Shown here is an 86-nucleotide sequence from Zingiber officinale, a member of the family "small nucleolar RNA snoR117". NCBI's taxonomy places the organism under Eukaryota, Streptophyta, Tracheophyta, Petrosaviidae, Zingiber. It scores 44 bits against the family's covariance model. Rfam links the family to the GO terms RNA processing and nucleolus. For this family Rfam cites "Mining small RNA sequencing data: a new approach to identify small nucleolar RNAs in Arabidopsis" (Chen and Wu, Nucleic Acids Res, 2009).
Nucleotides: 086
Base pairs, nucleotide, nucleotide: 001085002084003083004082
Number, partner (000 for none) and nucleotide at each position: 001085g002084g003083c004082c005000g006000a007000u008000g009000a010000u011000g012000u013000g014000a015000u016000a017000u018000u019000a020000u021000u022000g023000u024000u025000c026000g027000u028000a029000c030000c031000a032000u033000u034000u035000g036000a037000g038000a039000u040000u041000u042000g043000a044000c045000g046000a047000c048000u049000a050000u051000g052000u053000c054000a055000u056000c057000u058000c059000u060000u061000u062000g063000a064000u065000g066000c067000u068000c069000u070000u071000u072000c073000g074000a075000c076000u077000u078000c079000u080000g081000a082004g083003g084002c085001c086000u